[Rfam]
RNA sequence: GUUGCAAGUUACAGCCCAUAGCAGAAGCGUGCAUGGUGUGGCCCUGUCAGAUUCUCAUGAACCUGCAAAUUCUGCU
Numbered sequence: 001g002u003u004g005c006a007a008g009u010u011a012c013a014g015c016c017c018a019u020a021g022c023a024g025a026a027g028c029g030u031g032c033a034u035g036g037u038g039u040g041g042c043c044c045u046g047u048c049a050g051a052u053u054c055u056c057a058u059g060a061a062c063c064u065g066c067a068a069a070u071u072c073u074g075c076u
Stems, first nucleotide, its partner, number of pairs: 016041002020076007027039003048065003052061003